[Rfam]
RNA sequence: UCAUCAAGGCUAAAGGGAGAAGAGAGAGAGUACAGCCUUACCAUGUACACACUUCAGAUCUCAUCAGUUUCUUAUGGAGUUGUGUGACAUAGCGUUAUUUGUGUGUUGAAGGCUGUACCCUCUCUCUUCUUCUCUUAGCUUCUUGAUGC
Numbered sequence: 001u002c003a004u005c006a007a008g009g010c011u012a013a014a015g016g017g018a019g020a021a022g023a024g025a026g027a028g029a030g031u032a033c034a035g036c037c038u039u040a041c042c043a044u045g046u047a048c049a050c051a052c053u054u055c056a057g058a059u060c061u062c063a064u065c066a067g068u069u070u071c072u073u074a075u076g077g078a079g080u081u082g083u084g085u086g087a088c089a090u091a092g093c094g095u096u097a098u099u100u101g102u103g104u105g106u107u108g109a110a111g112g113c114u115g116u117a118c119c120c121u122c123u124c125u126c127u128u129c130u131u132c133u134c135u136u137a138g139c140u141u142c143u144u145g146a147u148g149c
Stems, first nucleotide, its partner, number of pairs: 005145002009139001012136002015133014030118009
RNA: MIR529 microRNA precursor family